[Rfam]
RNA sequence: AGAGUGAAGGUGUCCAGGAGGAUGUGGCCGCCCUGCGAGCAUUCACAGAUGCUAUGACCAGGUAUUCGGCCCCCCCUGGGGAUGAACCACAC
Numbered sequence: 001a002g003a004g005u006g007a008a009g010g011u012g013u014c015c016a017g018g019a020g021g022a023u024g025u026g027g028c029c030g031c032c033c034u035g036c037g038a039g040c041a042u043u044c045a046c047a048g049a050u051g052c053u054a055u056g057a058c059c060a061g062g063u064a065u066u067c068g069g070c071c072c073c074c075c076c077u078g079g080g081g082a083u084g085a086a087c088c089a090c091a092c
Base pairs, nucleotide, nucleotide: 006087010083013080014079015078017076018075020073021072026071027070028069030066032062033061034060035059038053039052040051041050042049043048
Rfam assigns this 92-nucleotide RNA sequence to the family "Hepatitis C virus stem-loop SL8670". Rfam's curators put it in the seed alignment. The family's consensus secondary structure was predicted with RNAfold.